[Rfam]
Nucleotides: 057
Base pairs, nucleotide, nucleotide: 001053002052003051005049006048007047008046009045010044011043012042013041014039019034020033021032022031023030
Number, partner (000 for none) and nucleotide at each position: 001053a002052a003051a004000a005049g006048a007047g008046c009045a010044a011043u012042a013041g014039c015000a016000c017000c018000c019034u020033c021032u022031u023030g024000a025000u026000a027000g028000a029000a030023c031022a032021a033020g034019a035000a036000a037000a038000u039014g040000a041013u042012u043011a044010u045009u046008g047007u048006u049005c050000a051003u052002u053001u054000c055000u056000u057000u

Annotation:
Plastid-psbA-3 3UTR RNA: a 57-nucleotide RNA sequence from Nicotiana attenuata. On this family, see Richter et al., Plant Commun 2023: "Retrograde signaling in plants: A critical review focusing on the GUN pathway and beyond". Rfam describes the family as follows. Plastid psbA-3 is a non-coding RNA (ncRNA) present in plastids. The match comes from Rfam's covariance-model search (51 bits). Pairs were carried over by alignment from the consensus structure, which was predicted with LocARNA. It is annotated as a cis-regulatory element.